[Rfam]
RNA: Small nucleolar RNA snoR53Y
RNA sequence: GUUCCCUGUGAUGUAAGAUUGACCAUGCUAAUUCUGAAAUAUUUUUUCUGAAGAAAGCUAAUGUUAUUUAUCUGAGGGAACA
Numbered sequence: 001g002u003u004c005c006c007u008g009u010g011a012u013g014u015a016a017g018a019u020u021g022a023c024c025a026u027g028c029u030a031a032u033u034c035u036g037a038a039a040u041a042u043u044u045u046u047u048c049u050g051a052a053g054a055a056a057g058c059u060a061a062u063g064u065u066a067u068u069u070a071u072c073u074g075a076g077g078g079a080a081c082a
Base pairs, nucleotide, nucleotide: 001081002080003079004078005077006076007075